The family of this 72-nucleotide sequence from Pristionchus pacificus is "mir-239 microRNA precursor family". The source organism's lineage runs through Eukaryota, Eumetazoa, Rhabditida, Neodiplogasteridae and Pristionchus.
[Rfam]
Nucleotides: 072
Stems, first nucleotide, its partner, number of pairs: 003069001005067001007065006015057005020051004025046003028042003
Number, partner (000 for none) and nucleotide at each position: 001000c002000c003069u004000u005067g006000u007065u008064u009063g010062u011061a012060c013000u014000a015057g016056g017055c018054u019053a020051a021050g022049g023048a024000a025046u026045u027044a028042c029041g030040u031000c032000a033000u034000a035000u036000u037000g038000a039000a040030g041029c042028g043000u044027u045026a046025a047000u048023u049022c050021c051020u052000c053019u054018a055017g056016u057015c058000c059000c060012g061011u062010g063009c064008a065007a066000u067005c068000c069003a070000g071000g072000c
Description: For this family Rfam cites "Large-scale sequencing reveals 21U-RNAs and additional microRNAs and endogenous siRNAs in C. elegans" (Ruby et al., Cell, 2006). It is one of the family's seed sequences.